[Rfam]
RNA: Small nucleolar RNA SNORA29
Organism: Microtus ochrogaster
RNA sequence: CUUCCCAUUUGACUACCACGUUUUCUCCUAAUAGAUUUUAGUGGCUAUGCUUAUGGGAUAGAUGAAAAGUGCCGUGAUCUGAAGGGGGAGGACUUUUCGGUGUCUUCCUUCUAUAUGAAAUGGCUCAACAGAAGACC
Numbered sequence: 001c002u003u004c005c006c007a008u009u010u011g012a013c014u015a016c017c018a019c020g021u022u023u024u025c026u027c028c029u030a031a032u033a034g035a036u037u038u039u040a041g042u043g044g045c046u047a048u049g050c051u052u053a054u055g056g057g058a059u060a061g062a063u064g065a066a067a068a069g070u071g072c073c074g075u076g077a078u079c080u081g082a083a084g085g086g087g088g089a090g091g092a093c094u095u096u097u098c099g100g101u102g103u104c105u106u107c108c109u110u111c112u113a114u115a116u117g118a119a120a121u122g123g124c125u126c127a128a129c130a131g132a133a134g135a136c137c
Stems, first nucleotide, its partner, number of pairs: 004057004016044004071124004089112004